About this RNA: This 109-nucleotide RNA from Rhizobium sp. PDO1-076 belongs to the Rfam family "Guanidine-I riboswitch aptamer". Taxonomically the source falls in Rhizobium (Bacteria, Pseudomonadati, Alphaproteobacteria, Rhizobiaceae). This family represents a conserved RNA structure found upstream of the ykkC and yxkD genes in Bacillus subtilis and related genes in other bacteria. It scores 77 bits against the family's covariance model.
RNA sequence: CGAGUUGGUGGCUAGGGUUCCGGUGCGGUUGCGCAUGCUGGUCCGAGAGCUGCCACCGGCAGGGGAGACAUCCUUGUCGGAUGCACGGCGGGAUAAAAGCCCGGGAGAC
Dot-bracket structure: ......((((((..((...((((((((....))))).).)).))....))))))((((((((((.......))))))))).).(.[...(((.......))).)..]..